This 374-nucleotide RNA sequence from Aliikangiella marina belongs to the Rfam family "Bacterial RNase P class A".
Ribonuclease P (RNase P) is a ubiquitous endoribonuclease, found in archaea, bacteria and eukarya as well as chloroplasts and mitochondria.
The family's RNA type in Rfam is ribozyme.
[Rfam]
RNA sequence: UUGGUCGACUAGGCAGUCGCUGUUUAAUCGCUUGCGAUUAGAGAGAGGAAAGUCCGGACUUUACAGAGCAGGGUGCCAGGUAACGCCUGGGGGGCGAAAGCCUACGGAAAGUGCAGCAGAAAAUAUACCGCCCCAAAUUGUUUUCAAUUUAGGGUAAGGGUGAAAUGGUGUCGGUAAGAGCGCACCGCGCUGAUGGUAACAUCAGUGGCAAGGUAAACCCCACUCGAAGCAAGGCCAAAUAGGGUUCCUGAAGAUUUUUAUCUUAAGACGUGGCUCGCGUUGGAACCGGGUAGGCUGCUUGAGCGUUUUGGUGACGAAACGCCUAGACGAAUGACUGUCCACGACAGAAUCCGGCUUAUCGGUUGACCACAAAA
Numbered sequence: 001u002u003g004g005u006c007g008a009c010u011a012g013g014c015a016g017u018c019g020c021u022g023u024u025u026a027a028u029c030g031c032u033u034g035c036g037a038u039u040a041g042a043g044a045g046a047g048g049a050a051a052g053u054c055c056g057g058a059c060u061u062u063a064c065a066g067a068g069c070a071g072g073g074u075g076c077c078a079g080g081u082a083a084c085g086c087c088u089g090g091g092g093g094g095c096g097a098a099a100g101c102c103u104a105c106g107g108a109a110a111g112u113g114c115a116g117c118a119g120a121a122a123a124u125a126u127a128c129c130g131c132c133c134c135a136a137a138u139u140g141u142u143u144u145c146a147a148u149u150u151a152g153g154g155u156a157a158g159g160g161u162g163a164a165a166u167g168g169u170g171u172c173g174g175u176a177a178g179a180g181c182g183c184a185c186c187g188c189g190c191u192g193a194u195g196g197u198a199a200c201a202u203c204a205g206u207g208g209c210a211a212g213g214u215a216a217a218c219c220c221c222a223c224u225c226g227a228a229g230c231a232a233g234g235c236c237a238a239a240u241a242g243g244g245u246u247c248c249u250g251a252a253g254a255u256u257u258u259u260a261u262c263u264u265a266a267g268a269c270g271u272g273g274c275u276c277g278c279g280u281u282g283g284a285a286c287c288g289g290g291u292a293g294g295c296u297g298c299u300u301g302a303g304c305g306u307u308u309u310g311g312u313g314a315c316g317a318a319a320c321g322c323c324u325a326g327a328c329g330a331a332u333g334a335c336u337g338u339c340c341a342c343g344a345c346a347g348a349a350u351c352c353g354g355c356u357u358a359u360c361g362g363u364u365g366a367c368c369a370c371a372a373a374a
Base pairs, nucleotide, nucleotide: 002369003368004367005366006365007364008363009362010361011359012339013338014337015336016335017334018333020045021044023042024041025040026039027038028037050357051356052355054354055353056352057351058350059229060228061227062226066276067275068274069273071225072224073223074222075221076090077089078088079087080086091105092103093102094101095100106220107219111218112217113214114213128159129158130155131154132153133152135150136149137148138147139146140145167186168185169184170183172182173181187209188207189206190205191204192203193202194201195200233296234295235294236293243287244286245285246284247283248282267281268280269279270278271277303322304321305320306319307318308317309316310315